[Rfam]
RNA sequence: UGCUUCGGUGCCGCGGGCGGCUUUUUCCGAACAAGAACCGAGGUGAAAGAACCCCACCAAGCCCCACCCCUCCCGCCCGCAGCGCAAACUCACUCACGCGAGUGAAUAUGCCAACUGGAGUGGAUUCGGGCCGGGUUGUCUGCCCUACGCUCAGCGCAACAGCCGCAGACAUGCGACGGCCCCCGCCGGGACUGCCAUCCCAGUGCGAGGGCCUGACCACCGAGGAAGAUAAGGGCUUCCCG
Numbered sequence: 001u002g003c004u005u006c007g008g009u010g011c012c013g014c015g016g017g018c019g020g021c022u023u024u025u026u027c028c029g030a031a032c033a034a035g036a037a038c039c040g041a042g043g044u045g046a047a048a049g050a051a052c053c054c055c056a057c058c059a060a061g062c063c064c065c066a067c068c069c070c071u072c073c074c075g076c077c078c079g080c081a082g083c084g085c086a087a088a089c090u091c092a093c094u095c096a097c098g099c100g101a102g103u104g105a106a107u108a109u110g111c112c113a114a115c116u117g118g119a120g121u122g123g124a125u126u127c128g129g130g131c132c133g134g135g136u137u138g139u140c141u142g143c144c145c146u147a148c149g150c151u152c153a154g155c156g157c158a159a160c161a162g163c164c165g166c167a168g169a170c171a172u173g174c175g176a177c178g179g180c181c182c183c184c185g186c187c188g189g190g191a192c193u194g195c196c197a198u199c200c201c202a203g204u205g206c207g208a209g210g211g212c213c214u215g216a217c218c219a220c221c222g223a224g225g226a227a228g229a230u231a232a233g234g235g236c237u238u239c240c241c242g
Stems, first nucleotide, its partner, number of pairs: 007221004016077004090105006121153003178213005184207003188201004224240005
Background
Shown here is a 242-nucleotide RNA from Streptomyces sp. 3214.6, a member of the family "Streptomyces sRNA 4677". The literature on the family includes a 2014 paper in PLoS One by Hindra et al., "Complex intra-operonic dynamics mediated by a small RNA in Streptomyces coelicolor". NCBI's taxonomy places the organism under Bacteria, Bacillati, Kitasatosporales, Streptomycetaceae, Streptomyces. It is annotated as a small RNA. Rfam describes the family as follows. Located in the intergenic region between anti-sigma factor SCO4677 gene and a putative regulatory protein gene SCO4676. scr4677 expression requires the SCO4677 activity and scr4677 sRNA itself seem to affect the levels of the SCO4676-associated transcripts.